[Rfam]
RNA sequence: CCUGCCCCUAGAGGCAUGGCAGGUGUGGCUGCUGUGUCACAUAUUCCUCGGUAGGUGGCAGAGGGGAGAGAGACUAUGUCCAUGCUGUGUUUUGACCUAUAGACACUGAGCCCAAGACAGACAACCAUC
Numbered sequence: 001c002c003u004g005c006c007c008c009u010a011g012a013g014g015c016a017u018g019g020c021a022g023g024u025g026u027g028g029c030u031g032c033u034g035u036g037u038c039a040c041a042u043a044u045u046c047c048u049c050g051g052u053a054g055g056u057g058g059c060a061g062a063g064g065g066g067a068g069a070g071a072g073a074c075u076a077u078g079u080c081c082a083u084g085c086u087g088u089g090u091u092u093u094g095a096c097c098u099a100u101a102g103a104c105a106c107u108g109a110g111c112c113c114a115a116g117a118c119a120g121a122c123a124a125c126c127a128u129c
Stems, first nucleotide, its partner, number of pairs: 002061005007055004013049002019046001021044001024041006068126001072122001074120002077117001084111001086109001087107001088105005
The family of this 129-nucleotide RNA sequence from Rattus norvegicus is "Small nucleolar RNA SNORA17". The source organism's lineage runs through Eukaryota, Opisthokonta, Craniata, Eutheria and Rattus. Rfam 15.1 lists 5,784 matches to the family in 673 species. A reference for the family is Ofengand and Bakin (1997), "Mapping to nucleotide resolution of pseudouridine residues in large subunit ribosomal RNAs from representative eukaryotes, prokaryotes, archaebacteria, mitochondria and chloroplasts", J Mol Biol. Clan: SNORA17 clan.